A member of the RNA family "SAM riboswitch aptamer (S box leader)" from Luteimicrobium xylanilyticum, 104 nucleotides long.

RNA sequence: UCACCAUCCAGAGCGGUCGAGAGUCCUGGCUCGUCGACACCGCAGCAACCCCCCAACGGAAGCCUCCCGAGGGACGAGGGUGCUAACGCCAGGUCCGAUGGAGA
Numbered sequence: 001u002c003a004c005c006a007u008c009c010a011g012a013g014c015g016g017u018c019g020a021g022a023g024u025c026c027u028g029g030c031u032c033g034u035c036g037a038c039a040c041c042g043c044a045g046c047a048a049c050c051c052c053c054c055a056a057c058g059g060a061a062g063c064c065u066c067c068c069g070a071g072g073g074a075c076g077a078g079g080g081u082g083c084u085a086a087c088g089c090c091a092g093g094u095c096c097g098a099u100g101g102a103g104a
Stems, first nucleotide, its partner, number of pairs: 001104002004101005013043005021032003026092004044084004049080002051076001054073001088096001
Dot-bracket structure: ((.(((((....(((((...(((..[[[[)))......)))))((((.(((..(..................)..)..))))))...(]]]]...)))))).))
Record summary
Its family is annotated with regulation of gene expression in the Gene Ontology.